[Rfam]
The record is a 56-nucleotide sequence from Rhodopseudomonas rhenobacensis, which matches "terC RNA" in Rfam. The family's RNA type in Rfam is cis-regulatory element. The family's consensus secondary structure is taken from published work.
RNA sequence: GUCUAGGACCGGGCCCCUCUGGCAGUUCAAGCGAACUGUGAUGUCGGACAGGACGU
Numbered sequence: 001g002u003c004u005a006g007g008a009c010c011g012g013g014c015c016c017c018u019c020u021g022g023c024a025g026u027u028c029a030a031g032c033g034a035a036c037u038g039u040g041a042u043g044u045c046g047g048a049c050a051g052g053a054c055g056u
Stems, first nucleotide, its partner, number of pairs: 007049001009047004022039007